This 207-nucleotide sequence from Lachancea kluyveri belongs to the Rfam family "Small nucleolar RNA snR31".

RNA sequence: UAUACAAACAACCAUGUGUUCCACCGGCGUCACUGUAGGCUUCCUUCCAUGCCUACGGUUAGAUGCUUGAAUUUCUUUGGUGGCAUUCUGUCGACACAUGGAAGAUUGAUUUUAGGUAAGAUGUAUCUCCAGCUAUUGAACGCGGGAAAGCCUUUCUCUUUCCUGCCCCAAAAACUGAUAUAGUUGGUCAUAAUUCUUGCAACAUCA
Numbered sequence: 001u002a003u004a005c006a007a008a009c010a011a012c013c014a015u016g017u018g019u020u021c022c023a024c025c026g027g028c029g030u031c032a033c034u035g036u037a038g039g040c041u042u043c044c045u046u047c048c049a050u051g052c053c054u055a056c057g058g059u060u061a062g063a064u065g066c067u068u069g070a071a072u073u074u075c076u077u078u079g080g081u082g083g084c085a086u087u088c089u090g091u092c093g094a095c096a097c098a099u100g101g102a103a104g105a106u107u108g109a110u111u112u113u114a115g116g117u118a119a120g121a122u123g124u125a126u127c128u129c130c131a132g133c134u135a136u137u138g139a140a141c142g143c144g145g146g147a148a149a150g151c152c153u154u155u156c157u158c159u160u161u162c163c164u165g166c167c168c169c170a171a172a173a174a175c176u177g178a179u180a181u182a183g184u185u186g187g188u189c190a191u192a193a194u195u196c197u198u199g200c201a202a203c204a205u206c207a
Stems, first nucleotide, its partner, number of pairs: 012101008023072001025069003028065004032059004040051001075093001079088002116200003120196002129187008142166009

Gene Ontology terms of the family: nucleolus and RNA processing. NCBI's taxonomy places the organism under Eukaryota, Opisthokonta, Fungi, saccharomyceta, Lachancea kluyveri. The sequence is in the family's curated seed alignment. A reference for the family is Dandekar and Tollervey (1993), "Identification and functional analysis of a novel yeast small nucleolar RNA", Nucleic Acids Res. The family is grouped with related families in Rfam's "SNORA8 clan". It is annotated as an H/ACA-box small nucleolar RNA.